Shown here is an 80-nucleotide sequence from Nothoprocta perdicaria, a member of the family "mir-1791 microRNA precursor family". Rfam links the family to the GO terms RISC complex and miRNA-mediated post-transcriptional gene silencing. NCBI's taxonomy places the organism under Eukaryota, Metazoa, Chordata, Vertebrata, Nothoprocta.
RNA sequence: UGCACCGUGUUGGGCUGCAUCAGUCAUGCCAUGUUACGGAACCUAACGCAAUGUGACUGAUGCGGGCUGACGUGGUAUGU
Numbered sequence: 001u002g003c004a005c006c007g008u009g010u011u012g013g014g015c016u017g018c019a020u021c022a023g024u025c026a027u028g029c030c031a032u033g034u035u036a037c038g039g040a041a042c043c044u045a046a047c048g049c050a051a052u053g054u055g056a057c058u059g060a061u062g063c064g065g066g067c068u069g070a071c072g073u074g075g076u077a078u079g080u
Stems, first nucleotide, its partner, number of pairs: 002080003006074008015065014032048005